RNA sequence: AAUGGGAGAAUGACAAAUUAUAUUUUUUUCUCCUGAUUUUUAGCUUUUUCCUCUUGAAAAAAUUCAAAUCCAACUAAAAAUACUAAAAAUCAAGAAAAUAAAAAUUUGAUUUGUCAUUCUCUUA
Numbered sequence: 001a002a003u004g005g006g007a008g009a010a011u012g013a014c015a016a017a018u019u020a021u022a023u024u025u026u027u028u029u030c031u032c033c034u035g036a037u038u039u040u041u042a043g044c045u046u047u048u049u050c051c052u053c054u055u056g057a058a059a060a061a062a063u064u065c066a067a068a069u070c071c072a073a074c075u076a077a078a079a080a081u082a083c084u085a086a087a088a089a090u091c092a093a094g095a096a097a098a099u100a101a102a103a104a105u106u107u108g109a110u111u112u113g114u115c116a117u118u119c120u121c122u123u124a
Stems, first nucleotide, its partner, number of pairs: 003124018022105001023103004028098001031095002034092007042084002046080004
Dot-bracket structure: ..((((((((((((((((((.(((((.(..((.(((((((.((..((((...........................))))..)).))))))).))..).)))).).))))))))))))))))))

Background
Rfam assigns this 124-nucleotide sequence from Gossypium klotzschianum to the family "MIR7504 microRNA precursor family".